Rfam assigns this 57-nucleotide RNA from Schmidtea mediterranea to the family "mir-753 microRNA precursor family".

RNA sequence: UAAGGCUUGAAUUGUGAUCUCAUAAACCUAUGAGAUCAUUAUUCAAGCUCUUCAAUA
Numbered sequence: 001u002a003a004g005g006c007u008u009g010a011a012u013u014g015u016g017a018u019c020u021c022a023u024a025a026a027c028c029u030a031u032g033a034g035a036u037c038a039u040u041a042u043u044c045a046a047g048c049u050c051u052u053c054a055a056u057a
Stems, first nucleotide, its partner, number of pairs: 002051001004049009014039011
Dot-bracket structure: .(.(((((((((.(((((((((((....))))))))))).))))))))).)......
Rfam links the family to the GO terms RISC complex and miRNA-mediated post-transcriptional gene silencing.